[Rfam]
RNA: Small nucleolar RNA SNORA8
Organism: Gadus morhua
RNA sequence: AGCACUGCAGUAUCUGCAGACAGUUGCUUCGCCAACUGGUCUGUUCAAAAGUCGGUGCGAGAAGAACGCAGUAUUGGCAUCGUUGGUCUCCUUGCUGCCAGUGCUUGGAGUCCUGGUAAACUUGCUGCAACACUA
Numbered sequence: 001a002g003c004a005c006u007g008c009a010g011u012a013u014c015u016g017c018a019g020a021c022a023g024u025u026g027c028u029u030c031g032c033c034a035a036c037u038g039g040u041c042u043g044u045u046c047a048a049a050a051g052u053c054g055g056u057g058c059g060a061g062a063a064g065a066a067c068g069c070a071g072u073a074u075u076g077g078c079a080u081c082g083u084u085g086g087u088c089u090c091c092u093u094g095c096u097g098c099c100a101g102u103g104c105u106u107g108g109a110g111u112c113c114u115g116g117u118a119a120a121c122u123u124g125c126u127g128c129a130a131c132a133c134u135a
Stems, first nucleotide, its partner, number of pairs: 002058006012052002015049001016044006022037005062123003069115003076105005